[Rfam]
RNA sequence: GAAGUCUGCUAGGCCGUCGCUGGCGCAAGUCCCGAAAGGGCGCGCUGGAGGAACGUCCGGACUGCAUAGGACAGCGUAGGAGCUAACGGCUCUCCACCGCGAGGUGAGGAUCAGAGCAACAGAGACGAGUCCCUUGGAACCAUCCGCUCCGGCGGCAGGAGCCUUGGGGGUGAAACGGGCAAUCUCUACGCGCAGCAACACCAAGUAGGCCAGCGUCGAUGUGGUUCCGCAGAGUUGGCGGGUAGGUGGCACCGAGCCAUGUGGGUGACCCAUGGCCAAGAUGAAUGGCGGUCACGCCGGGGAUUUCGCAAGAAGUUCCCGGUGCACAGAAUCCGGCGUAUCGGCAGACUUCACAA
Numbered sequence: 001g002a003a004g005u006c007u008g009c010u011a012g013g014c015c016g017u018c019g020c021u022g023g024c025g026c027a028a029g030u031c032c033c034g035a036a037a038g039g040g041c042g043c044g045c046u047g048g049a050g051g052a053a054c055g056u057c058c059g060g061a062c063u064g065c066a067u068a069g070g071a072c073a074g075c076g077u078a079g080g081a082g083c084u085a086a087c088g089g090c091u092c093u094c095c096a097c098c099g100c101g102a103g104g105u106g107a108g109g110a111u112c113a114g115a116g117c118a119a120c121a122g123a124g125a126c127g128a129g130u131c132c133c134u135u136g137g138a139a140c141c142a143u144c145c146g147c148u149c150c151g152g153c154g155g156c157a158g159g160a161g162c163c164u165u166g167g168g169g170g171u172g173a174a175a176c177g178g179g180c181a182a183u184c185u186c187u188a189c190g191c192g193c194a195g196c197a198a199c200a201c202c203a204a205g206u207a208g209g210c211c212a213g214c215g216u217c218g219a220u221g222u223g224g225u226u227c228c229g230c231a232g233a234g235u236u237g238g239c240g241g242g243u244a245g246g247u248g249g250c251a252c253c254g255a256g257c258c259a260u261g262u263g264g265g266u267g268a269c270c271c272a273u274g275g276c277c278a279a280g281a282u283g284a285a286u287g288g289c290g291g292u293c294a295c296g297c298c299g300g301g302g303a304u305u306u307c308g309c310a311a312g313a314a315g316u317u318c319c320c321g322g323u324g325c326a327c328a329g330a331a332u333c334c335g336g337c338g339u340a341u342c343g344g345c346a347g348a349c350u351u352c353a354c355a356a
Stems, first nucleotide, its partner, number of pairs: 001352010011341001012293007020048007053339003057336005062195004069226001071225001074191005079093005094108001095106004109186002114184002116180002131169004199248004209239006220231004256276006263270002
The record is a 356-nucleotide RNA sequence from Malikia granosa, which matches "Bacterial RNase P class A" in Rfam.
Taxonomically the source falls in Malikia (Bacteria, Pseudomonadati, Betaproteobacteria, Burkholderiales).
The match comes from Rfam's covariance-model search (194 bits).
By type it is a ribozyme.
Its Rfam clan is "RNaseP clan".